[Rfam]
RNA sequence: UCAUAGGAUAGUUAUAUAACACGAAACUGACCUGAUGAGUUAGAUUACAUAGUGCGCACUAUGUAGUGACUUAAACGUGUAUAAAUAAAAGUUGAAACCUAUUAC
Numbered sequence: 001u002c003a004u005a006g007g008a009u010a011g012u013u014a015u016a017u018a019a020c021a022c023g024a025a026a027c028u029g030a031c032c033u034g035a036u037g038a039g040u041u042a043g044a045u046u047a048c049a050u051a052g053u054g055c056g057c058a059c060u061a062u063g064u065a066g067u068g069a070c071u072u073a074a075a076c077g078u079g080u081a082u083a084a085a086u087a088a089a090a091g092u093u094g095a096a097a098c099c100u101a102u103u104a105c
Stems, first nucleotide, its partner, number of pairs: 001018001003017003007013002020079004028042004043067001045066009
RNA: RAGATH-34 RNA